[Rfam]
RNA sequence: CACCGACAUCAUGGCUUCGUUGUGGGAGCCCCGGGCCACCGCCAGAUAGGCGUUCAUGCCCAGCUCCGCCAUUUCUUCCUCGCCGAUGACGCGGGUGCUGAUGUUGUCCCAGGCGUCCGCCAGCUGGCGCGCCUGAGACGCCAGGUAGGCGGGGUUGCACACGUUGGGCGGCAUGUUGGCCACGUCGC
Numbered sequence: 001c002a003c004c005g006a007c008a009u010c011a012u013g014g015c016u017u018c019g020u021u022g023u024g025g026g027a028g029c030c031c032c033g034g035g036c037c038a039c040c041g042c043c044a045g046a047u048a049g050g051c052g053u054u055c056a057u058g059c060c061c062a063g064c065u066c067c068g069c070c071a072u073u074u075c076u077u078c079c080u081c082g083c084c085g086a087u088g089a090c091g092c093g094g095g096u097g098c099u100g101a102u103g104u105u106g107u108c109c110c111a112g113g114c115g116u117c118c119g120c121c122a123g124c125u126g127g128c129g130c131g132c133c134u135g136a137g138a139c140g141c142c143a144g145g146u147a148g149g150c151g152g153g154g155u156u157g158c159a160c161a162c163g164u165u166g167g168g169c170g171g172c173a174u175g176u177u178g179g180c181c182a183c184g185u186c187g188c
Stems, first nucleotide, its partner, number of pairs: 005186003013031002016028003020024001033043002050059002062077002079131001081129005087123001091120007100108003134159002137156003141152002165182003169178001
RNA: Yersinia sRNA 276
Organism: Oceanimonas sp. GK1